[Rfam]
RNA: Purine riboswitch aptamer
Organism: Clostridium manihotivorum
RNA sequence: AAUAAGAUAAAGCUAUUUACUCGUAUAUCCCUUGGAUAAGGCAAGGAGUCUCUACCGGAAACCGUAAAUUCCCGACUAUGAGUGAAAUUGGUAUACUA
Numbered sequence: 001a002a003u004a005a006g007a008u009a010a011a012g013c014u015a016u017u018u019a020c021u022c023g024u025a026u027a028u029c030c031c032u033u034g035g036a037u038a039a040g041g042c043a044a045g046g047a048g049u050c051u052c053u054a055c056c057g058g059a060a061a062c063c064g065u066a067a068a069u070u071c072c073c074g075a076c077u078a079u080g081a082g083u084g085a086a087a088u089u090g091g092u093a094u095a096c097u098a
Stems, first nucleotide, its partner, number of pairs: 018084008030046005056074003060070002